[Rfam]
RNA sequence: AAGCAUGGUUCAAAGGCUAAGAACGCCACGUCCUGUGGCAACGCCUUUGUGACCAACGUCCUGUUGG
Numbered sequence: 001a002a003g004c005a006u007g008g009u010u011c012a013a014a015g016g017c018u019a020a021g022a023a024c025g026c027c028a029c030g031u032c033c034u035g036u037g038g039c040a041a042c043g044c045c046u047u048u049g050u051g052a053c054c055a056a057c058g059u060c061c062u063g064u065u066g067g
Base pairs, nucleotide, nucleotide: 011049012048013047014046015045016044017043025039026038027037028036029035053067054066055065056064057063
Background: A member of the RNA family "Bacillaceae-1 RNA" from Lentibacillus salicampi, 67 nucleotides long. Pairs were carried over by alignment from the consensus structure, which is taken from published work.